Rfam assigns this 84-nucleotide RNA sequence from Tolypothrix tenuis to the family "Photosynthesis regulatory RNA1". The source organism's lineage runs through Bacteria, Bacillati, Tolypothrichaceae, Tolypothrix and Tolypothrix tenuis. By type it is a small RNA. Its family is annotated with regulation of translation and regulation of photosynthesis in the Gene Ontology. A reference for the family is Georg et al. (2014), "The small regulatory RNA SyR1/PsrR1 controls photosynthetic functions in cyanobacteria", Plant Cell.

RNA sequence: AAGAUUUUUGCAAUUCGCUAUCUGUAUCUCUCAUCGUCAUUUGAACUUCUCCCAUCAACCUCGGUUAGUUUCGCCGGGGUUUUU
Numbered sequence: 001a002a003g004a005u006u007u008u009u010g011c012a013a014u015u016c017g018c019u020a021u022c023u024g025u026a027u028c029u030c031u032c033a034u035c036g037u038c039a040u041u042u043g044a045a046c047u048u049c050u051c052c053c054a055u056c057a058a059c060c061u062c063g064g065u066u067a068g069u070u071u072c073g074c075c076g077g078g079g080u081u082u083u084u
Base pairs, nucleotide, nucleotide: 058080059079060078061077062076063075064074065073
About this RNA
Rfam's curators write: Formerly known as Syr1 discovered in Synechocystis sp PCC 6803, is a regulatory factor controlling photosynthetic functions. A search with the family's covariance model found it, with a score of 61 bits. The family's consensus secondary structure was predicted with CMfinder.